[Rfam]
RNA sequence: GUUUGGGGGAAAGCGAUCUCCUCCCGAGGCGACAUGCCGAAGAGUCGCGUCCCGUUUCUCCUGAUGCGGAGAGGACGCGUCGUG
Numbered sequence: 001g002u003u004u005g006g007g008g009g010a011a012a013g014c015g016a017u018c019u020c021c022u023c024c025c026g027a028g029g030c031g032a033c034a035u036g037c038c039g040a041a042g043a044g045u046c047g048c049g050u051c052c053c054g055u056u057u058c059u060c061c062u063g064a065u066g067c068g069g070a071g072a073g074g075a076c077g078c079g080u081c082g083u084g
Stems, first nucleotide, its partner, number of pairs: 005024006047078006
RNA: chrB-a RNA